[Rfam]
This 102-nucleotide sequence from Halomonas sp. PA5 belongs to the Rfam family "t44 RNA". Lineage of the source: Bacteria > Pseudomonadota > Oceanospirillales > Halomonadaceae > Halomonas. It scores 70 bits against the family's covariance model. About the family: This family consists of a number of bacterial RNA genes of between 135 and 170 bases in length. Rfam classes the family as a small RNA.
RNA sequence: CAACUGAAACGCCUAAUACACACAUGCACCGACACAUGUUCCCGGGUGCCGUCGCGGCGAAAGGCCGGACGGUCGGAUCCAUGGGGUGCGUGGAGGCCUAAC
Numbered sequence: 001c002a003a004c005u006g007a008a009a010c011g012c013c014u015a016a017u018a019c020a021c022a023c024a025u026g027c028a029c030c031g032a033c034a035c036a037u038g039u040u041c042c043c044g045g046g047u048g049c050c051g052u053c054g055c056g057g058c059g060a061a062a063g064g065c066c067g068g069a070c071g072g073u074c075g076g077a078u079c080c081a082u083g084g085g086g087u088g089c090g091u092g093g094a095g096g097c098c099u100a101a102c
Stems, first nucleotide, its partner, number of pairs: 023092008035083004040077003048073005